[Rfam]
RNA sequence: UUAAUUGUCCCCAAAGCUGGAAUCCUUCCCGCUGCGUUGCUAUAGCUCCAGACACCCUGCCGACACAUGGCAUAACAACAGGCCGCCCCUCCGGCGGCGAUAACGCGUGCACCCAGGGAGACACACUGCAAUGCAAAA
Numbered sequence: 001u002u003a004a005u006u007g008u009c010c011c012c013a014a015a016g017c018u019g020g021a022a023u024c025c026u027u028c029c030c031g032c033u034g035c036g037u038u039g040c041u042a043u044a045g046c047u048c049c050a051g052a053c054a055c056c057c058u059g060c061c062g063a064c065a066c067a068u069g070g071c072a073u074a075a076c077a078a079c080a081g082g083c084c085g086c087c088c089c090u091c092c093g094g095c096g097g098c099g100a101u102a103a104c105g106c107g108u109g110c111a112c113c114c115a116g117g118g119a120g121a122c123a124c125a126c127u128g129c130a131a132u133g134c135a136a137a138a
Base pairs, nucleotide, nucleotide: 012118019029020028021027038107039106040105058072059071060070061069062068082098083097084096085095086094

The family of this 138-nucleotide sequence from Cedecea neteri is "opuB ncRNA motif". A reference for the family is Narunsky et al. (2024), "The discovery of novel noncoding RNAs in 50 bacterial genomes", Nucleic Acids Res. Rfam links the family to the GO term regulation of gene expression. opuB ncRNA motif was reported as a strong cis regulatory motif candidate, with potential to be a cis regulatory riboswitch type, it have been identified in mostly from species of Enterobacteriaceae. The motif have been recognised mostly downstream-adjacent gene, opuB, annotated as coding for a proline/glycine ABC-transporter, whereas other related genes are known to be relevant to the transport of compatible solutes such as glycine, betaine, and choline of an uncharacterized ABC transporter with strong homology to amino acid transporters. Rfam's curators put it in the seed alignment.